Shown here is a 94-nucleotide sequence from Synechocystis sp. PCC 6803, a member of the family "Bacterial small signal recognition particle RNA". By type it is a non-coding RNA gene. NCBI's taxonomy places the organism under Bacteria, Cyanophyceae, Synechococcales, Merismopediaceae, Synechocystis.
[Rfam]
Nucleotides: 094
Base pairs, nucleotide, nucleotide: 004091005090006089007088008087010084011083012082013081014080017076018075019074020073021072022071026065027064028063034059035058036057037056042051043050044049
Number, partner (000 for none) and nucleotide at each position: 001000g002000g003000c004091u005090c006089g007088g008087a009000c010084u011083c012082a013081u014080g015000c016000g017076a018075u019074u020073a021072c022071a023000a024000c025000g026065c027064c028063c029000a030000a031000a032000u033000c034059u035058u036057g037056u038000c039000a040000g041000g042051a043050c044049c045000g046000g047000a048000a049044g050043g051042u052000a053000g054000c055000a056037g057036c058035a059034a060000u061000a062000a063028g064027g065026g066000a067000u068000g069000c070000u071022u072021g073020u074019g075018g076017u077000a078000g079000g080014c081013g082012u083011g084010a085000a086000c087008u088007c089006c090005g091004g092000g093000c094000u
About this RNA
The signal recognition particle (SRP) is a universally conserved ribonucleoprotein involved in the co-translational targeting of proteins to membranes.